Notes:
Small nucleolar RNA Z157/R69/R10: a 98-nucleotide RNA sequence from Camphora micrantha. A reference for the family is Chen et al. (2003), "The high diversity of snoRNAs in plants: identification and comparative study of 120 snoRNA genes from Oryza sativa", Nucleic Acids Res. The match comes from Rfam's covariance-model search (61 bits). The family's consensus secondary structure was predicted with PFOLD.

[Rfam]
RNA sequence: UUUAGUGCAGUGAUGAUAUCUAUUGUGGACUAGAGUUUCUGAUCUGGUUGAUAUCAACCACUUUUUGAAGACAAACCCUUGGCUGUCUGAGCACAAUC
Numbered sequence: 001u002u003u004a005g006u007g008c009a010g011u012g013a014u015g016a017u018a019u020c021u022a023u024u025g026u027g028g029a030c031u032a033g034a035g036u037u038u039c040u041g042a043u044c045u046g047g048u049u050g051a052u053a054u055c056a057a058c059c060a061c062u063u064u065u066u067g068a069a070g071a072c073a074a075a076c077c078c079u080u081g082g083c084u085g086u087c088u089g090a091g092c093a094c095a096a097u098c
Stems, first nucleotide, its partner, number of pairs: 003096001005094004036070004045060004